[Rfam]
RNA sequence: CUGCGGGACCGGGCCCCUCUGGCGUCAUGAUCAAACUGAUCUGGCGCGAUGUCGGACCGCAUCG
Numbered sequence: 001c002u003g004c005g006g007g008a009c010c011g012g013g014c015c016c017c018u019c020u021g022g023c024g025u026c027a028u029g030a031u032c033a034a035a036c037u038g039a040u041c042u043g044g045c046g047c048g049a050u051g052u053c054g055g056a057c058c059g060c061a062u063c064g
Base pairs, nucleotide, nucleotide: 006058007057009055010054011053012052022047023046024045025044026043027042029040
terC RNA: a 64-nucleotide RNA from Paracoccus sp. SM22M-07. The family has 129 seed sequences and 1,112 matches in Rfam 15.1. The family's consensus secondary structure is taken from published work. A search with the family's covariance model found it, with a score of 56 bits. The family's RNA type in Rfam is cis-regulatory element.